RNA: tRNA
Organism: Flavobacterium fluvii
RNA sequence: GGCUGAGUAGUUCAACUGGAUAGAAUAUCAGAUUUCGACUCUGAGGGUUGCAGGUUCGAACCCUGUCUCGGUCA
Numbered sequence: 001g002g003c004u005g006a007g008u009a010g011u012u013c014a015a016c017u018g019g020a021u022a023g024a025a026u027a028u029c030a031g032a033u034u035u036c037g038a039c040u041c042u043g044a045g046g047g048u049u050g051c052a053g054g055u056u057c058g059a060a061c062c063c064u065g066u067c068u069c070g071g072u073c074a
Stems, first nucleotide, its partner, number of pairs: 001073007010026004028044005050066005